Shown here is a 146-nucleotide RNA sequence from Longispora fulva, a member of the family "c-di-AMP riboswitch aptamer (ydaO/yuaA leader)". The source organism's lineage runs through Bacteria, Bacillati, Actinomycetes, Micromonosporales and Longispora. Gene Ontology terms of the family: regulation of gene expression and cyclic-di-AMP binding.
[Rfam]
RNA sequence: GGUCGAAUGCCGCCGAAUCGCCUCUGUGCGAAUCGGGGACCCACAGUGCUAGUUGGGGUGAGUCCGUCACUGUUCGUAGUGAUGGUAGGGCGAUCUUCCCGCCCGAACCCGUCAGCUAACCCGGUAGGCGGCUGAUGGAAGAAGGA
Numbered sequence: 001g002g003u004c005g006a007a008u009g010c011c012g013c014c015g016a017a018u019c020g021c022c023u024c025u026g027u028g029c030g031a032a033u034c035g036g037g038g039a040c041c042c043a044c045a046g047u048g049c050u051a052g053u054u055g056g057g058g059u060g061a062g063u064c065c066g067u068c069a070c071u072g073u074u075c076g077u078a079g080u081g082a083u084g085g086u087a088g089g090g091c092g093a094u095c096u097u098c099c100c101g102c103c104c105g106a107a108c109c110c111g112u113c114a115g116c117u118a119a120c121c122c123g124g125u126a127g128g129c130g131g132c133u134g135a136u137g138g139a140a141g142a143a144g145g146a
Stems, first nucleotide, its partner, number of pairs: 011130004018031003032125006042055002056110003064085009088104004